[Rfam]
RNA sequence: ACUCACAAAGGAAAUGGUGUCUUCCUAUUUGAACCGUCCGAUACACUUCGCGACUGAUGGCGCCUGCAAAUAG
Dot-bracket structure: .........[[[[..((((((]]]]..........(((.............)))....)))))).........
Numbered sequence: 001a002c003u004c005a006c007a008a009a010g011g012a013a014a015u016g017g018u019g020u021c022u023u024c025c026u027a028u029u030u031g032a033a034c035c036g037u038c039c040g041a042u043a044c045a046c047u048u049c050g051c052g053a054c055u056g057a058u059g060g061c062g063c064c065u066g067c068a069a070a071u072a073g
Stems, first nucleotide, its partner, number of pairs: 010025004016064006036054003

Shown here is a 73-nucleotide sequence from Niastella populi, a member of the family "Fluoride riboswitch aptamer (crcB RNA motif)". The match comes from Rfam's covariance-model search (43 bits).